[Rfam]
Nucleotides: 059
Base pairs, nucleotide, nucleotide: 001052002051003050004049005048006047007046008045009044010043011042012041013040018035019034020033021032022031023030
Number, partner (000 for none) and nucleotide at each position: 001052a002051a003050g004049g005048a006047g007046c008045a009044a010043u011042a012041c013040c014000g015000c016000a017000u018035u019034u020033c021032u022031u023030g024000u025000u026000u027000u028000a029000u030023c031022a032021a033020g034019a035018g036000g037000g038000u039000u040013g041012g042011u043010a044009u045008u046007g047006c048005u049004c050003c051002u052001u053000c054000a055000u056000u057000u058000a059000u
Rfam assigns this 59-nucleotide RNA sequence from Macadamia ternifolia to the family "Plastid-psbA-3 3UTR RNA". The family's RNA type in Rfam is cis-regulatory element. The source organism's lineage runs through Eukaryota, Streptophyta, Spermatophyta, Magnoliopsida and Macadamia. Rfam describes the family as follows. Plastid psbA-3 is a non-coding RNA (ncRNA) present in plastids. It was identified in inverted repeat sequences in the 3 prime untranslate region (3UTR) of photosystem II quinone-binding protein (psbA). On this family, see Richter et al., Plant Commun 2023: "Retrograde signaling in plants: A critical review focusing on the GUN pathway and beyond". Rfam's curators put it in the seed alignment.